[Rfam]
RNA sequence: GACGCGUAAGCGCCGUGGGCAGGAGCGGGGGAACCAAGGUAGGCGCCGGACCCGGGAGUCGAGAGACACCGGGAACGGCUUGGGGUGAAGCCGCGCGUCGCAGGACGAGGACGCGCGGCCGGGCAACUCAACCGGCCCGAACCCGACAGCUCACCUCGCAGGCGUCGGUGAGGGGAUCA
Numbered sequence: 001g002a003c004g005c006g007u008a009a010g011c012g013c014c015g016u017g018g019g020c021a022g023g024a025g026c027g028g029g030g031g032a033a034c035c036a037a038g039g040u041a042g043g044c045g046c047c048g049g050a051c052c053c054g055g056g057a058g059u060c061g062a063g064a065g066a067c068a069c070c071g072g073g074a075a076c077g078g079c080u081u082g083g084g085g086u087g088a089a090g091c092c093g094c095g096c097g098u099c100g101c102a103g104g105a106c107g108a109g110g111a112c113g114c115g116c117g118g119c120c121g122g123g124c125a126a127c128u129c130a131a132c133c134g135g136c137c138c139g140a141a142c143c144c145g146a147c148a149g150c151u152c153a154c155c156u157c158g159c160a161g162g163c164g165u166c167g168g169u170g171a172g173g174g175g176a177u178c179a
Stems, first nucleotide, its partner, number of pairs: 003164003011023001025159006035082004083144003091118009121138004